Overview
A member of the RNA family "Coronavirus 3' UTR pseudoknot" from Callipepla squamata, 58 nucleotides long. Coronaviruses are plus-strand RNA viruses with ~30kb genomes. The 3' UTR region of coronavirus genomes contains a conserved ~55nt pseudoknot structure which has been shown to be necessary for viral genome replication. The mechanism of cis-regulation is unclear, but this element is postulated to function in the plus-strand. The seed alignment was expanded in 2020 by Eric Nawrocki. Its Rfam clan is "Coronavirus 3' UTR". The base pairs follow the family's consensus structure, which is taken from published work. The match comes from Rfam's covariance-model search (40 bits). For this family Rfam cites "A phylogenetically conserved hairpin-type 3' untranslated region pseudoknot functions in coronavirus RNA replication" (Williams et al., J Virol, 1999). The family's RNA type in Rfam is cis-regulatory element.
RNA sequence: CCACUCUUUUGCAGAAUUUUUUCCUAAUAUACAACCAGAAUAAUGGUUGUAUAUACCA
Numbered sequence: 001c002c003a004c005u006c007u008u009u010u011g012c013a014g015a016a017u018u019u020u021u022u023c024c025u026a027a028u029a030u031a032c033a034a035c036c037a038g039a040a041u042a043a044u045g046g047u048u049g050u051a052u053a054u055a056c057c058a
Base pairs, nucleotide, nucleotide: 007043008042010040012038028053029052030051031050032049033048034047035046036045